[Rfam]
RNA sequence: CUCUUAUAUUUUUGUGCGAUUAUAUAUUUUACGGAAUAUAUACAGUGCUAAUAUUAGAUAUUAAAGGGAACUUAUUCCUUCUUAAAAGAAAUUUUAAGUAAAUAUGAAUUAGGAACAUUUAUAUUAGUAAGCAAAUUUGCUGAAUAUAUAAAUGUUUC
Numbered sequence: 001c002u003c004u005u006a007u008a009u010u011u012u013u014g015u016g017c018g019a020u021u022a023u024a025u026a027u028u029u030u031a032c033g034g035a036a037u038a039u040a041u042a043c044a045g046u047g048c049u050a051a052u053a054u055u056a057g058a059u060a061u062u063a064a065a066g067g068g069a070a071c072u073u074a075u076u077c078c079u080u081c082u083u084a085a086a087a088g089a090a091a092u093u094u095u096a097a098g099u100a101a102a103u104a105u106g107a108a109u110u111a112g113g114a115a116c117a118u119u120u121a122u123a124u125u126a127g128u129a130a131g132c133a134a135a136u137u138u139g140c141u142g143a144a145u146a147u148a149u150a151a152a153u154g155u156u157u158c
Stems, first nucleotide, its partner, number of pairs: 003057002006054004014048002021042009081098007112158013130141004

Annotation:
The record is a 158-nucleotide RNA sequence, which matches "RT-14 RNA" in Rfam. Rfam classes the family as a small RNA.